[Rfam]
RNA: chrB-a RNA
RNA sequence: GGCAUGGGGACGGCGAUCUCCCCACGAGGCCACGGCCGAAGCAUCGCGUUCCAAGCCUCAAGCAGGAGGGACGCGCCAUG
Numbered sequence: 001g002g003c004a005u006g007g008g009g010a011c012g013g014c015g016a017u018c019u020c021c022c023c024a025c026g027a028g029g030c031c032a033c034g035g036c037c038g039a040a041g042c043a044u045c046g047c048g049u050u051c052c053a054a055g056c057c058u059c060a061a062g063c064a065g066g067a068g069g070g071a072c073g074c075g076c077c078a079u080g
Stems, first nucleotide, its partner, number of pairs: 005024006046074006